This 80-nucleotide RNA sequence from Acetivibrio ethanolgignens belongs to the Rfam family "HTH-XRE RNA". By type it is a cis-regulatory element. A search with the family's covariance model found it, with a score of 76 bits.
RNA sequence: GAUCAGCAUAAGCAGGGGCAUACACAGUAUGCGUCGGAACUCCCGGCAGUAAGAAGACUUGCAAAGGUGAUUUCCCUUUC
Number, nucleotide and partner (000 for none) at each position: 001g000002a000003u000004c000005a000006g000007c000008a000009u000010a000011a000012g047013c046014a000015g044016g043017g042018g032019c031020a030021u029022a028023c027024a000025c000026a000027g023028u022029a021030u020031g019032c018033g000034u000035c000036g000037g000038a000039a000040c000041u000042c017043c016044c015045g000046g013047c012048a000049g000050u000051a000052a000053g000054a000055a000056g000057a000058c000059u000060u000061g000062c000063a000064a000065a000066g000067g000068u000069g000070a000071u000072u000073u000074c000075c000076c000077u000078u000079u000080c000